[Rfam]
RNA sequence: UUGGUUUAAAGCAUUAUGGGUCUACGCUUUGAAAAUUGAACCCACACAAAGUGGUGGAACAUACAUUGAUUUAUUCCAA
Number, nucleotide and partner (000 for none) at each position: 001u079002u078003g077004g076005u000006u000007u073008a072009a071010a070011g000012c068013a067014u000015u065016a000017u063018g062019g000020g000021u000022c057023u056024a055025c053026g052027c051028u050029u049030u048031g047032a000033a000034a000035a000036u000037u000038g000039a000040a000041c000042c000043c000044a000045c000046a000047c031048a030049a029050a028051g027052u026053g025054g000055u024056g023057g022058a000059a000060c000061a000062u018063a017064c000065a015066u000067u013068g012069a000070u010071u009072u008073a007074u000075u000076c004077c003078a002079a001
This 79-nucleotide RNA from Medicago truncatula belongs to the Rfam family "MIR5269 microRNA precursor family". Lineage of the source: Eukaryota > Streptophyta > fabids > Fabales > Medicago.